[Rfam]
RNA sequence: UUAUUCCCUUCGUCCCAUAAUAUAAGAACAUUUUUUAUACUAAUGUAGUGUCAAAAAUGUUCUUAUAUUAUGAGACGGAGGGGGUAG
Numbered sequence: 001u002u003a004u005u006c007c008c009u010u011c012g013u014c015c016c017a018u019a020a021u022a023u024a025a026g027a028a029c030a031u032u033u034u035u036u037a038u039a040c041u042a043a044u045g046u047a048g049u050g051u052c053a054a055a056a057a058u059g060u061u062c063u064u065a066u067a068u069u070a071u072g073a074g075a076c077g078g079a080g081g082g083g084g085u086a087g
Stems, first nucleotide, its partner, number of pairs: 003085003007081005013075002016072002019069017037051005
A member of the RNA family "MIR1120/MIR1122 microRNA precursor family" from Triticum aestivum, 87 nucleotides long. Rfam links the family to the GO terms miRNA-mediated post-transcriptional gene silencing and RISC complex. Pairs were carried over by alignment from the consensus structure, which was predicted with RNAalifold. The organism belongs to Triticum, within Eukaryota.